[Rfam]
RNA sequence: GAACGUUCUCGGGGCGGGGUGAAACUCCCCACCGGCGGUGAUGGGGCGGCCUGGCCGCGCCUUAGCCCGCGAGCGCCCGGCGGCCCUUGGCGGCCGGGGUCAGCAGAUCGGGUGCGAUGCCCGAGCCGACGGUCACAGUCCGGAUGGAAGAGAACGGGC
Numbered sequence: 001g002a003a004c005g006u007u008c009u010c011g012g013g014g015c016g017g018g019g020u021g022a023a024a025c026u027c028c029c030c031a032c033c034g035g036c037g038g039u040g041a042u043g044g045g046g047c048g049g050c051c052u053g054g055c056c057g058c059g060c061c062u063u064a065g066c067c068c069g070c071g072a073g074c075g076c077c078c079g080g081c082g083g084c085c086c087u088u089g090g091c092g093g094c095c096g097g098g099g100u101c102a103g104c105a106g107a108u109c110g111g112g113u114g115c116g117a118u119g120c121c122c123g124a125g126c127c128g129a130c131g132g133u134c135a136c137a138g139u140c141c142g143g144a145u146g147g148a149a150g151a152g153a154a155c156g157g158g159c
Stems, first nucleotide, its partner, number of pairs: 004156007017029003031139002033128002035070004065126002073104002108124005130142003
Shown here is a 159-nucleotide RNA sequence from Allostella humosa, a member of the family "FMN riboswitch aptamer (RFN element)". The organism belongs to Allostella, within Bacteria.